[Rfam]
RNA sequence: GCCAGCAGUAGUCAGCUGCCCAUAGCCGCUCAGUGCGGGGGAUAGUGUUAUGCUGCUGGGAGAGAAACAUGCUGGCAAGUUGCGCCUGGUACCGCUCGUGCUGUUCUAGUGCUAGAUGGUGCCAGGUUUUGGCAGCACUCUGCAUGCUUGAGAGUGGAGUAACUCUUUUUCAGUAGAGUUAAUCCUAGAUUGGAUGCAGACAAA
Numbered sequence: 001g002c003c004a005g006c007a008g009u010a011g012u013c014a015g016c017u018g019c020c021c022a023u024a025g026c027c028g029c030u031c032a033g034u035g036c037g038g039g040g041g042a043u044a045g046u047g048u049u050a051u052g053c054u055g056c057u058g059g060g061a062g063a064g065a066a067a068c069a070u071g072c073u074g075g076c077a078a079g080u081u082g083c084g085c086c087u088g089g090u091a092c093c094g095c096u097c098g099u100g101c102u103g104u105u106c107u108a109g110u111g112c113u114a115g116a117u118g119g120u121g122c123c124a125g126g127u128u129u130u131g132g133c134a135g136c137a138c139u140c141u142g143c144a145u146g147c148u149u150g151a152g153a154g155u156g157g158a159g160u161a162a163c164u165c166u167u168u169u170u171c172a173g174u175a176g177a178g179u180u181a182a183u184c185c186u187a188g189a190u191u192g193g194a195u196g197c198a199g200a201c202a203a204a
Stems, first nucleotide, its partner, number of pairs: 002059008011051002015046004020041001021039001023037001025036002070137005076131002084127010095115002099111004140199006147192001156185003160181007
Shown here is a 204-nucleotide sequence from Tinamus guttatus, a member of the family "Small nucleolar RNA SNORA74". Clan: SNORA74 clan. The match comes from Rfam's covariance-model search (103 bits). Rfam 15.1 lists 1,348 matches to the family in 628 species. The organism belongs to Tinamus, within Eukaryota. The family's consensus secondary structure was predicted with PFOLD. Rfam classes the family as an H/ACA-box small nucleolar RNA. From the family's description: U19 belongs to the H/ACA class of snoRNAs. snoRNAs bind a number of proteins (including dyskerin, Gar1p and Nop10p in the case of the H/ACA class) to form snoRNP complexes. Its family is annotated with RNA processing and nucleolus in the Gene Ontology.